RNA sequence: AUGCAUUUAUUUGGCAGACCUGGAGCAGUUACUGUCUGCUGUUAAGGUUCUGGUGCAGAUGCAGGAAAAAAGGUUAUUCACUCUUUCUGUCUGACUGUGGCAGCUGAGAUUGAAUGGGGGAAUACAGUG
Dot-bracket structure: .(((((((..((....((((...(((((.......))))).....))))..))...)))))))...........(.(((...(..(((..(((.(...).)))...)))..)....))).)........
Shown here is a 129-nucleotide sequence from Rousettus aegyptiacus, a member of the family "Small nucleolar RNA SNORA31".
The organism belongs to Rousettus, within Eukaryota.
On this family, see Huttenhofer et al., EMBO J 2001: "RNomics: an experimental approach that identifies 201 candidates for novel, small, non-messenger RNAs in mouse".
Rfam describes the family as follows. ACA31 (SNORA31) belongs to the H/ACA class of snoRNAs which are thought to guide the sites of modification of uridines to pseudouridines. ACA31 is predicted to guide the pseudouridylation of U3713 in 28S rRNA and U218 in 18S rRNA. This family includes the mouse homologue snoMBI-161.
The match comes from Rfam's covariance-model search (41 bits).
Its family is annotated with RNA processing and nucleolus in the Gene Ontology.
The family's consensus secondary structure was predicted with RNAalifold.